[Rfam]
A member of the RNA family "mir-290 microRNA precursor family" from Otolemur garnettii, 66 nucleotides long.
It scores 57 bits against the family's covariance model.
Its family is annotated with miRNA-mediated post-transcriptional gene silencing and RISC complex in the Gene Ontology.
The family has 31 seed sequences and 565 matches in Rfam 15.1.
A reference for the family is Houbaviy et al. (2003), "Embryonic stem cell-specific MicroRNAs", Dev Cell.
Taxonomically the source falls in Otolemur (Eukaryota, Teleostomi, Euteleostomi, Primates).
Its Rfam clan is "mir-290 clan".
RNA sequence: GGGAUACUCAAAAUGGAAGCACUUCCCUUUGUCUGGACUGGAAAGUGCUUCAAUUUUGGGUGUCAC
Numbered sequence: 001g002g003g004a005u006a007c008u009c010a011a012a013a014u015g016g017a018a019g020c021a022c023u024u025c026c027c028u029u030u031g032u033c034u035g036g037a038c039u040g041g042a043a044a045g046u047g048c049u050u051c052a053a054u055u056u057u058g059g060g061u062g063u064c065a066c
Base pairs, nucleotide, nucleotide: 004063005062006061007060008059009058010057011056012055013054014053016051017050018049019048020047021046022045023044024042025041026040